[Rfam]
A member of the RNA family "Plastid-atpF group II-D1 intron" from Cucurbita maxima, 53 nucleotides long. Rfam 15.1 lists 1,372 matches to the family in 227 species. The family's consensus secondary structure was predicted with LocARNA. The match comes from Rfam's covariance-model search (54 bits). Rfam describes the family as follows. Plastid atpF is a non-coding RNA (ncRNA) recognised in plastids.
RNA sequence: UUUUUUUUUAUCGACAUAGAACACUUGUGUAGAUAAAAUAAUUUAAACCUCUU
Numbered sequence: 001u002u003u004u005u006u007u008u009u010a011u012c013g014a015c016a017u018a019g020a021a022c023a024c025u026u027g028u029g030u031a032g033a034u035a036a037a038a039u040a041a042u043u044u045a046a047a048c049c050u051c052u053u
Base pairs, nucleotide, nucleotide: 011033012032014030015029016028017027
Dot-bracket structure: ..........((.((((.........)))).))....................